This 107-nucleotide RNA sequence from Hydrobacter penzbergensis belongs to the Rfam family "Bacteroidales small SRP". For this family Rfam cites "A high-resolution transcriptome map identifies small RNA regulation of metabolism in the gut microbe Bacteroides thetaiotaomicron" (Ryan et al., Nat Commun, 2020). The base pairs follow the family's consensus structure, which is taken from published work. Rfam classes the family as a non-coding RNA gene. It scores 86 bits against the family's covariance model. The family is grouped with related families in Rfam's "SRP clan".
RNA sequence: UUGCAACCGGCAGGUCUUACACGACCAGCUCCUGCUGAACCUCCCCAGGGCAGGAAUGCAGCAAGGAUAAGUGGUUGAGCGGUGCGAUGUGAGUAGCCUGCCAUUUU
Numbered sequence: 001u002u003g004c005a006a007c008c009g010g011c012a013g014g015u016c017u018u019a020c021a022c023g024a025c026c027a028g029c030u031c032c033u034g035c036u037g038a039a040c041c042u043c044c045c046c047a048g049g050g051c052a053g054g055a056a057u058g059c060a061g062c063a064a065g066g067a068u069a070a071g072u073g074g075u076u077g078a079g080c081g082g083u084g085c086g087a088u089g090u091g092a093g094u095a096g097c098c099u100g101c102c103a104u105u106u107u
Base pairs, nucleotide, nucleotide: 009102010101011100012099013098014097015096017092018091019090020089021088022086023085024083025082